Rfam assigns this 295-nucleotide sequence from Claviceps africana to the family "Group I catalytic intron". The family's consensus secondary structure is taken from published work. About the family: Group I catalytic introns are large self-splicing ribozymes.

[Rfam]
RNA sequence: AUUGAGAAAUCUCUUAGGGCUAAAUUGUGGGUGUGAACCAUCUGCUAUAAACCAUCAAAUUGCGGGAAAGCCCUAAAGCAAUUUAAACUAAACAAACGUGGCAACACAGUUUGUGGCACAGGUAAUGACUCGUGGUAUAGUAAAAUCUAAAUUGAUGCACGAAAGGAAAUGGGUAAUCCGCAGCCAAGCUCCCAUACUAAGAAAUAUGGGUGUGCAGUUCAUCGGCUAGAUGUUGGUUGGCAUUAUCAUGAUUAUAAUGCUUAAGGUAUAGUCAAACCCUACUCGAGAGAGUACA
Numbered sequence: 001a002u003u004g005a006g007a008a009a010u011c012u013c014u015u016a017g018g019g020c021u022a023a024a025u026u027g028u029g030g031g032u033g034u035g036a037a038c039c040a041u042c043u044g045c046u047a048u049a050a051a052c053c054a055u056c057a058a059a060u061u062g063c064g065g066g067a068a069a070g071c072c073c074u075a076a077a078g079c080a081a082u083u084u085a086a087a088c089u090a091a092a093c094a095a096a097c098g099u100g101g102c103a104a105c106a107c108a109g110u111u112u113g114u115g116g117c118a119c120a121g122g123u124a125a126u127g128a129c130u131c132g133u134g135g136u137a138u139a140g141u142a143a144a145a146u147c148u149a150a151a152u153u154g155a156u157g158c159a160c161g162a163a164a165g166g167a168a169a170u171g172g173g174u175a176a177u178c179c180g181c182a183g184c185c186a187a188g189c190u191c192c193c194a195u196a197c198u199a200a201g202a203a204a205u206a207u208g209g210g211u212g213u214g215c216a217g218u219u220c221a222u223c224g225g226c227u228a229g230a231u232g233u234u235g236g237u238u239g240g241c242a243u244u245a246u247c248a249u250g251a252u253u254a255u256a257a258u259g260c261u262u263a264a265g266g267u268a269u270a271g272u273c274a275a276a277c278c279c280u281a282c283u284c285g286a287g288a289g290a291g292u293a294c295a
Stems, first nucleotide, its partner, number of pairs: 004013002050238005056232002061182006071173003183218002188213002191210001195206002222274001224273005240260007248252001280293005